[Rfam]
RNA sequence: CCUAUCUCAGUAGGCCAUGUUUACUGGGGCACAUGCGUUAUGACAAAUCUAGCUGGUAGGGUCAUAACGUGCCGUAGGUACUGAUGUGAUUGAUGAGUCCAUCAGUAGAAGGGCAUUGAUAGCGCUAGCCUGGAAAUAAAACAGGCGCAUAUUAAAGGAACCCAACA
Numbered sequence: 001c002c003u004a005u006c007u008c009a010g011u012a013g014g015c016c017a018u019g020u021u022u023a024c025u026g027g028g029g030c031a032c033a034u035g036c037g038u039u040a041u042g043a044c045a046a047a048u049c050u051a052g053c054u055g056g057u058a059g060g061g062u063c064a065u066a067a068c069g070u071g072c073c074g075u076a077g078g079u080a081c082u083g084a085u086g087u088g089a090u091u092g093a094u095g096a097g098u099c100c101a102u103c104a105g106u107a108g109a110a111g112g113g114c115a116u117u118g119a120u121a122g123c124g125c126u127a128g129c130c131u132g133g134a135a136a137u138a139a140a141a142c143a144g145g146c147g148c149a150u151a152u153u154a155a156a157g158g159a160a161c162c163c164a165a166c167a
Stems, first nucleotide, its partner, number of pairs: 006028006035070008044060001079107008088098001128146005
RNA: DABA-DC-AT RNA
Organism: Photobacterium jeanii